The family of this 190-nucleotide RNA sequence from Escovopsis weberi is "Small nucleolar RNA snR32". A search with the family's covariance model found it, with a score of 45 bits.

RNA sequence: UGCGUGAUGUUCGUUUUGCCAGAUCAUACGUCGUCGCUUGACUUCGUAUAUCGACAUCUCCGUCGCUCCCCAUCGGCUCGGAUGUUUUCGCACUGGCAUAGAUGGAACCAUUUCUCGUUGCUGGGCACCCGGUUUGGAGAUGUCGUUUUGCACAUCAACGACAAGCCGGGAAUCAGCUGUAGAAACAUCU
Numbered sequence: 001u002g003c004g005u006g007a008u009g010u011u012c013g014u015u016u017u018g019c020c021a022g023a024u025c026a027u028a029c030g031u032c033g034u035c036g037c038u039u040g041a042c043u044u045c046g047u048a049u050a051u052c053g054a055c056a057u058c059u060c061c062g063u064c065g066c067u068c069c070c071c072a073u074c075g076g077c078u079c080g081g082a083u084g085u086u087u088u089c090g091c092a093c094u095g096g097c098a099u100a101g102a103u104g105g106a107a108c109c110a111u112u113u114c115u116c117g118u119u120g121c122u123g124g125g126c127a128c129c130c131g132g133u134u135u136g137g138a139g140a141u142g143u144c145g146u147u148u149u150g151c152a153c154a155u156c157a158a159c160g161a162c163a164a165g166c167c168g169g170g171a172a173u174c175a176g177c178u179g180u181a182g183a184a185a186c187a188u189c190u
Stems, first nucleotide, its partner, number of pairs: 001098003013093001017092003021088001027048004033042003051081004060076003113183002116179002128170002132166005139156005